RNA: DUF3268 RNA
RNA sequence: UGCAGAGGCUUGCGCUCAGGCUUUCGAUCCGAACGACGACGUCCGUUCGGCUGACAUGUUCAAAAGAACAUGAAAUCGUCACGGAUUUAGCGCACUGAGCGAUCCACACGGCGCAAGCU
Numbered sequence: 001u002g003c004a005g006a007g008g009c010u011u012g013c014g015c016u017c018a019g020g021c022u023u024u025c026g027a028u029c030c031g032a033a034c035g036a037c038g039a040c041g042u043c044c045g046u047u048c049g050g051c052u053g054a055c056a057u058g059u060u061c062a063a064a065a066g067a068a069c070a071u072g073a074a075a076u077c078g079u080c081a082c083g084g085a086u087u088u089a090g091c092g093c094a095c096u097g098a099g100c101g102a103u104c105c106a107c108a109c110g111g112c113g114c115a116a117g118c119u
Stems, first nucleotide, its partner, number of pairs: 007119010025078004029050007055072007083105003088102001090100002
Dot-bracket structure: ......((((((((((........(((((((((((........)))))))....(((((((....)))))))..))))....(((..(.((.......)).))))....))))))))))